[Rfam]
RNA sequence: GGAGUUCCUACAGGGGCGAGCUGGGAACACACGGUGAUGAGGCGGUCUGGUCUUUCGUGUGUUCUCAGGUCGCCCCUGCCGGGACUCU
Numbered sequence: 001g002g003a004g005u006u007c008c009u010a011c012a013g014g015g016g017c018g019a020g021c022u023g024g025g026a027a028c029a030c031a032c033g034g035u036g037a038u039g040a041g042g043c044g045g046u047c048u049g050g051u052c053u054u055u056c057g058u059g060u061g062u063u064c065u066c067a068g069g070u071c072g073c074c075c076c077u078g079c080c081g082g083g084a085c086u087c088u
Stems, first nucleotide, its partner, number of pairs: 007082002011078004016073004023066010

Background: Rfam assigns this 88-nucleotide RNA sequence from Oryza sativa to the family "MIR398 microRNA precursor family". Rfam links the family to the GO terms RISC complex and miRNA-mediated post-transcriptional gene silencing. The literature on the family includes a 2004 paper in Mol Cell by Jones-Rhoades and Bartel, "Computational identification of plant microRNAs and their targets, including a stress-induced miRNA".